[Rfam]
RNA sequence: UUGCUUGAUAGAGGUGCGGGAUUCAUCAGUAAUGAUCGGCGACAGCUUGGGAAGCUGCCGGACAUGAAAGGGGAGACCGCCGAAGAAAAUGUAAUAUCCCAAGUACAUUUUCUGGGGCGUGGCAGAAUAUGCUGCGAACUGUCACAUCGGUGGAGCGCUAUCAGAGUA
Numbered sequence: 001u002u003g004c005u006u007g008a009u010a011g012a013g014g015u016g017c018g019g020g021a022u023u024c025a026u027c028a029g030u031a032a033u034g035a036u037c038g039g040c041g042a043c044a045g046c047u048u049g050g051g052a053a054g055c056u057g058c059c060g061g062a063c064a065u066g067a068a069a070g071g072g073g074a075g076a077c078c079g080c081c082g083a084a085g086a087a088a089a090u091g092u093a094a095u096a097u098c099c100c101a102a103g104u105a106c107a108u109u110u111u112c113u114g115g116g117g118c119g120u121g122g123c124a125g126a127a128u129a130u131g132c133u134g135c136g137a138a139c140u141g142u143c144a145c146a147u148c149g150g151u152g153g154a155g156c157g158c159u160a161u162c163a164g165a166g167u168a
Stems, first nucleotide, its partner, number of pairs: 006163006016080004022074003032065003036061006084113010095102001114140002118136007142153004
Rfam assigns this 168-nucleotide RNA from Dorea formicigenerans to the family "Lysine riboswitch aptamer".
It scores 95 bits against the family's covariance model.
Rfam links the family to the GO term lysine biosynthetic process.
The family has 47 seed sequences and 3,224 matches in Rfam 15.1.